Notes:
Guanidine-I riboswitch aptamer: a 113-nucleotide RNA from Cohnella abietis. The organism belongs to Cohnella, within Bacteria. A search with the family's covariance model found it, with a score of 85 bits. For this family Rfam cites "New RNA motifs suggest an expanded scope for riboswitches in bacterial genetic control" (Barrick et al., Proc Natl Acad Sci U S A, 2004).
RNA sequence: AAAAAGGCUUUCUAGGGUUCCACGGUACAUCAUUUGUACCGGAUCGGUCCGAGAGAGAGCGCAUCCCUUUGCUUAGGCAAGGAUGUACACGGCGGGAUAAAAACCCGGGAGUA
Numbered sequence: 001a002a003a004a005a006g007g008c009u010u011u012c013u014a015g016g017g018u019u020c021c022a023c024g025g026u027a028c029a030u031c032a033u034u035u036g037u038a039c040c041g042g043a044u045c046g047g048u049c050c051g052a053g054a055g056a057g058a059g060c061g062c063a064u065c066c067c068u069u070u071g072c073u074u075a076g077g078c079a080a081g082g083a084u085g086u087a088c089a090c091g092g093c094g095g096g097a098u099a100a101a102a103a104c105c106c107g108g109g110a111g112u113a
Stems, first nucleotide, its partner, number of pairs: 007060006015050002020047002022044001023041006061086006068079001088108001090111001094106003